[Rfam]
RNA sequence: GGAGGCGGCGACGCCCCCCCGACUUGGACCGGCCCCGUGCCAGUCCUUGCCGCCUCCGCGCCUCAUUCUCGAUGAUGCCACCUUGAAGGCGACCCGGAUCGGGUCGCCU
Dot-bracket structure: ((((((((((.((......)).....(((.(((.....))).)))..)))))))))).............................(((((((((.....)))))))))
A member of the RNA family "Cauldobacter sRNA CC3552" from Brevundimonas subvibrioides, 109 nucleotides long.
It scores 72 bits against the family's covariance model.
Lineage of the source: Bacteria > Caulobacterales > Caulobacteraceae > Brevundimonas > Brevundimonas subvibrioides.
The literature on the family includes a 2008 paper in Mol Microbiol by Landt et al., "Small non-coding RNAs in Caulobacter crescentus".